Rfam assigns this 243-nucleotide RNA sequence from Trifolium subterraneum to the family "MIR2655 microRNA precursor family".
RNA sequence: ACCUUAUCUUUUAAAAGUUUCAAGUUGGUACCUUAUCUUUUCUACAGGUUUCUAGUUGGUACCUUAUGUCAAUUUUUUUAACUAUUACCGUUAAAUUUGGACACGUGACAAUUUUUUUGGACGUAUAAAUCAAUGACACGUGUCCAAAUUUAACGGUUAUAGUUAAAAAAUUGACGGAAGGUACCAACUUAAAACCUGCAGAAAAGAUAAGGUACCAACUUGAAACUUUUAAAAGAUAAGGUA
Numbered sequence: 001a002c003c004u005u006a007u008c009u010u011u012u013a014a015a016a017g018u019u020u021c022a023a024g025u026u027g028g029u030a031c032c033u034u035a036u037c038u039u040u041u042c043u044a045c046a047g048g049u050u051u052c053u054a055g056u057u058g059g060u061a062c063c064u065u066a067u068g069u070c071a072a073u074u075u076u077u078u079u080a081a082c083u084a085u086u087a088c089c090g091u092u093a094a095a096u097u098u099g100g101a102c103a104c105g106u107g108a109c110a111a112u113u114u115u116u117u118u119g120g121a122c123g124u125a126u127a128a129a130u131c132a133a134u135g136a137c138a139c140g141u142g143u144c145c146a147a148a149u150u151u152a153a154c155g156g157u158u159a160u161a162g163u164u165a166a167a168a169a170a171u172u173g174a175c176g177g178a179a180g181g182u183a184c185c186a187a188c189u190u191a192a193a194a195c196c197u198g199c200a201g202a203a204a205a206g207a208u209a210a211g212g213u214a215c216c217a218a219c220u221u222g223a224a225a226c227u228u229u230u231a232a233a234a235g236a237u238a239a240g241g242u243a
Stems, first nucleotide, its partner, number of pairs: 002241007023220003027216003031212013045198003